[Rfam]
Small nucleolar RNA SNORA48: a 128-nucleotide RNA sequence from Callithrix jacchus. Rfam's curators write: The snoRNA ACA 48 has been identified to guide pseudouridylation of the residue U3797 in the 28S rRNA subunit. The organism belongs to Callithrix, within Eukaryota. Pairs were carried over by alignment from the consensus structure, which was predicted with RNAalifold.

Nucleotides: 128
Stems, first nucleotide, its partner, number of pairs: 001056002004053001006051003011047004019039002022034002026030001068123001070121003083116001085114001089112001091110001093108003097104002
Number, partner (000 for none) and nucleotide at each position: 001056u002055g003000c004053c005000c006051c007050u008049g009000u010000c011047c012046u013045g014044g015000g016000u017000a018000c019039a020038g021000u022034g023033g024000c025000a026030u027000c028000u029000g030026g031000c032000a033023u034022u035000c036000a037000u038020c039019u040000c041000a042000u043000a044014u045013c046012a047011g048000c049008c050007a051006g052000a053004g054000a055002c056001a057000a058000a059000g060000c061000a062000a063000c064000c065000c066000c067000u068123u069000g070121u071120u072119u073000c074000u075000c076000u077000c078000a079000g080000c081000u082000u083116g084000g085114c086000c087000u088000u089112u090000a091110g092000u093108c094107u095106g096000u097104g098103c099000c100000c101000a102000u103098g104097c105000c106095u107094g108093g109000u110091u111000c112089a113000u114085g115000g116083c117000u118000u119072g120071g121070a122000a123068a124000c125000a126000u127000g128000g